[Rfam]
RNA sequence: GAAGAUGAAAAUUGUUUUUUUUCGUUUCUUUUUUUAUUUUAGCACCUAAAAUUUGGGGCUUUCGCGUAUUUAAGAAAAGAAACGAAAAACUGCGAUAAGCCUCCAAAUGGAGGCUUUUUUGUU
Numbered sequence: 001g002a003a004g005a006u007g008a009a010a011a012u013u014g015u016u017u018u019u020u021u022u023c024g025u026u027u028c029u030u031u032u033u034u035u036a037u038u039u040u041a042g043c044a045c046c047u048a049a050a051a052u053u054u055g056g057g058g059c060u061u062u063c064g065c066g067u068a069u070u071u072a073a074g075a076a077a078a079g080a081a082a083c084g085a086a087a088a089a090c091u092g093c094g095a096u097a098a099g100c101c102u103c104c105a106a107a108u109g110g111a112g113g114c115u116u117u118u119u120u121g122u123u
Stems, first nucleotide, its partner, number of pairs: 014093002019088014034073003041053002055065001057063002097116008
This 123-nucleotide RNA from Arsenophonus nasoniae belongs to the Rfam family "Phenylalanine leader peptide". Rfam links the family to the GO term cellular amino acid metabolic process. A reference for the family is Zurawski et al. (1978), "Nucleotide sequence of the leader region of the phenylalanine operon of Escherichia coli", Proc Natl Acad Sci U S A. Pairs were carried over by alignment from the consensus structure, which was predicted with CMfinder. It scores 69 bits against the family's covariance model. By type it is a cis-regulatory leader.